[Rfam]
RNA sequence: GAGCAUAUUGGAAGCUGUCAUCCAAGGGCGGUAGCGUA
Dot-bracket structure: .......(((((........))))).............
RNA: JUMPstart RNA
Organism: Aeromonas salmonicida